[Rfam]
RNA: Ribosomal protein L20 leader
Organism: Oceanobacillus indicireducens
RNA sequence: AAAGACAAGCAGAAGCACCCGCUUCUCACCUGCUCGACACCAUUUGUGUAGUUGACUGGUUUCUCUCAAGAUAUUAAUGAUUAAUUGACAGGGAAACGUGUGGGUGCAUUUUGUACCGACACUUUUUUUAUGUG
Numbered sequence: 001a002a003a004g005a006c007a008a009g010c011a012g013a014a015g016c017a018c019c020c021g022c023u024u025c026u027c028a029c030c031u032g033c034u035c036g037a038c039a040c041c042a043u044u045u046g047u048g049u050a051g052u053u054g055a056c057u058g059g060u061u062u063c064u065c066u067c068a069a070g071a072u073a074u075u076a077a078u079g080a081u082u083a084a085u086u087g088a089c090a091g092g093g094a095a096a097c098g099u100g101u102g103g104g105u106g107c108a109u110u111u112u113g114u115a116c117c118g119a120c121a122c123u124u125u126u127u128u129u130a131u132g133u134g
Stems, first nucleotide, its partner, number of pairs: 011026006028060003036053003039049002099121003103117006